RNA sequence: CUCACUCUCAAAGUUAUCGGCUUUGAUCAAGUGUAGUAUCUGUUCUAGUCGGCUUAACAACUGACUUAUCCGCAAGGAGUAUAAUACUUAGAAAAGUGGAGAUGUAAAAUGAGAGAUGUGCUUGCAUAAUCAUCAUUUUUUAUAGAUCUCUGGCAUCUUAAGAUGCUUUUUUAUUUAAUUUUUU
Numbered sequence: 001c002u003c004a005c006u007c008u009c010a011a012a013g014u015u016a017u018c019g020g021c022u023u024u025g026a027u028c029a030a031g032u033g034u035a036g037u038a039u040c041u042g043u044u045c046u047a048g049u050c051g052g053c054u055u056a057a058c059a060a061c062u063g064a065c066u067u068a069u070c071c072g073c074a075a076g077g078a079g080u081a082u083a084a085u086a087c088u089u090a091g092a093a094a095a096g097u098g099g100a101g102a103u104g105u106a107a108a109a110u111g112a113g114a115g116a117u118g119u120g121c122u123u124g125c126a127u128a129a130u131c132a133u134c135a136u137u138u139u140u141u142a143u144a145g146a147u148c149u150c151u152g153g154c155a156u157c158u159u160a161a162g163a164u165g166c167u168u169u170u171u172u173a174u175u176u177a178a179u180u181u182u183u184u
Base pairs, nucleotide, nucleotide: 008026009025010024012022013021014020015019047066048065049064050063051062052061067083068082069081071079073077106139107138108137109136110135111134112133117128118127119126120125143177144176145175146174147173152167153166154165155164
Shown here is a 184-nucleotide RNA from Vairimorpha necatrix, a member of the family "U2 spliceosomal RNA". By type it is a spliceosomal small nuclear RNA. Rfam's curators write: U2 is a small nuclear RNA (snRNA) component of the spliceosome (involved in pre-mRNA splicing). For this family Rfam cites "The spliceosomal snRNAs of Caenorhabditis elegans" (Thomas et al., Nucleic Acids Res, 1990). The source organism's lineage runs through Eukaryota, Opisthokonta, Fungi, Nosematidae and Vairimorpha. The family's consensus secondary structure is taken from published work. It is one of the family's seed sequences.